Rfam assigns this 309-nucleotide RNA sequence from Arachis hypogaea to the family "Plant signal recognition particle RNA".
The organism belongs to Arachis, within Eukaryota.
Gene Ontology terms of the family: signal recognition particle, endoplasmic reticulum targeting and SRP-dependent cotranslational protein targeting to membrane, signal sequence recognition.
For this family Rfam cites "Towards the structure of the mammalian signal recognition particle" (Wild et al., Curr Opin Struct Biol, 2002).
It scores 207 bits against the family's covariance model.
RNA sequence: GCCGAGCUGUGUAACUCUAGCUUGUGACCCAAGUGGGGGCAACUAAGGUGAUGGAACAAGUGCUUCUGGCCUUGCUAGGUCGGGCUUGCAAGGGCAAAUUGUUGGCCUGCCCACUCCAAGUUGGAGUUGGGCCCGGUAGUCUGGGCGAAGGCCCAAGGCCUCUCGGCUCCUAGAAUGGAGGGCAUUGCGUGAGGCUGGCUUAACAGAGCAACAACCACUUCCUGUCCCCAACAGUGGAGGGAUUACAGGCCGCCGCUCUUCUGGCCCAAUAUGGCCUGGUAGGCCUAGCUAUCGUGGACCAUCAUUCUU
Numbered sequence: 001g002c003c004g005a006g007c008u009g010u011g012u013a014a015c016u017c018u019a020g021c022u023u024g025u026g027a028c029c030c031a032a033g034u035g036g037g038g039g040c041a042a043c044u045a046a047g048g049u050g051a052u053g054g055a056a057c058a059a060g061u062g063c064u065u066c067u068g069g070c071c072u073u074g075c076u077a078g079g080u081c082g083g084g085c086u087u088g089c090a091a092g093g094g095c096a097a098a099u100u101g102u103u104g105g106c107c108u109g110c111c112c113a114c115u116c117c118a119a120g121u122u123g124g125a126g127u128u129g130g131g132c133c134c135g136g137u138a139g140u141c142u143g144g145g146c147g148a149a150g151g152c153c154c155a156a157g158g159c160c161u162c163u164c165g166g167c168u169c170c171u172a173g174a175a176u177g178g179a180g181g182g183c184a185u186u187g188c189g190u191g192a193g194g195c196u197g198g199c200u201u202a203a204c205a206g207a208g209c210a211a212c213a214a215c216c217a218c219u220u221c222c223u224g225u226c227c228c229c230a231a232c233a234g235u236g237g238a239g240g241g242a243u244u245a246c247a248g249g250c251c252g253c254c255g256c257u258c259u260u261c262u263g264g265c266c267c268a269a270u271a272u273g274g275c276c277u278g279g280u281a282g283g284c285c286u287a288g289c290u291a292u293c294g295u296g297g298a299c300c301a302u303c304a305u306u307c308u309u
Stems, first nucleotide, its partner, number of pairs: 001040003004023006011016001028037003045308001047306008057296002060292003065288001068285003072282010082267005088261001090259001092258003103252007111241002114239005120232005126226001128224001129169005135163002139159004143154004177222005189212002195206003